[Rfam]
RNA sequence: UCUGCUCAUAGAUGAUGCUCGCCCCUCCACUAGAUCUAGUGGAGGGGCGAGCAUCAUCUAUGAGCAGA
Numbered sequence: 001u002c003u004g005c006u007c008a009u010a011g012a013u014g015a016u017g018c019u020c021g022c023c024c025c026u027c028c029a030c031u032a033g034a035u036c037u038a039g040u041g042g043a044g045g046g047g048c049g050a051g052c053a054u055c056a057u058c059u060a061u062g063a064g065c066a067g068a
Base pairs, nucleotide, nucleotide: 001068002067003066004065005064006063007062008061009060010059011058012057013056014055015054016053017052018051019050020049021048022047023046024045025044026043027042028041030039031038032037